[Rfam]
RNA sequence: GUACCGGUUAACCACUCAUUAAGCUUUACGUGCGUUUACUGUGUUCAUCCAGUGAUCUGGAUUCUUACCGAGUGGCUGGAGCCAUUCUGUUUGACGCCUCCCUGUUUAAACUCCUGAGAGCCGCCCAUGCGGCUCUUUUUUU
Numbered sequence: 001g002u003a004c005c006g007g008u009u010a011a012c013c014a015c016u017c018a019u020u021a022a023g024c025u026u027u028a029c030g031u032g033c034g035u036u037u038a039c040u041g042u043g044u045u046c047a048u049c050c051a052g053u054g055a056u057c058u059g060g061a062u063u064c065u066u067a068c069c070g071a072g073u074g075g076c077u078g079g080a081g082c083c084a085u086u087c088u089g090u091u092u093g094a095c096g097c098c099u100c101c102c103u104g105u106u107u108a109a110a111c112u113c114c115u116g117a118g119a120g121c122c123g124c125c126c127a128u129g130c131g132g133c134u135c136u137u138u139u140u141u142u
Base pairs, nucleotide, nucleotide: 001044002043003042004041006013020038021037022036023035024034048061049060050059051058070087071086072085073084074083075082093106094105095104096103116137117136118135119134120133121132122131123130124129
RNA: Alphaproteobacterial sRNA BjrC1505